[Rfam]
Rfam assigns this 158-nucleotide sequence from Glycine soja to the family "MIR4371 microRNA precursor family".

RNA sequence: CUGUGAAGUGAUGAUGUGAUAGACGGAUUGUCAUGUCAUCAUGUCCAACCAAUGACACAUUGUUAUCACGUCAUUGAUGGUGAUGACGUGACAAUGAAGUGUCUUUGAUAAGAUAUGAUGACAUGAUACUUUGUCUGUCACAUCAUCAUUUAACGAAA
Numbered sequence: 001c002u003g004u005g006a007a008g009u010g011a012u013g014a015u016g017u018g019a020u021a022g023a024c025g026g027a028u029u030g031u032c033a034u035g036u037c038a039u040c041a042u043g044u045c046c047a048a049c050c051a052a053u054g055a056c057a058c059a060u061u062g063u064u065a066u067c068a069c070g071u072c073a074u075u076g077a078u079g080g081u082g083a084u085g086a087c088g089u090g091a092c093a094a095u096g097a098a099g100u101g102u103c104u105u106u107g108a109u110a111a112g113a114u115a116u117g118a119u120g121a122c123a124u125g126a127u128a129c130u131u132u133g134u135c136u137g138u139c140a141c142a143u144c145a146u147c148a149u150u151u152a153a154c155g156a157a158a
Stems, first nucleotide, its partner, number of pairs: 002155003006151022029128017048109001050107003054103005070087005

Lineage of the source: Eukaryota > Tracheophyta > Mesangiospermae > eudicotyledons > Glycine subgen. Soja.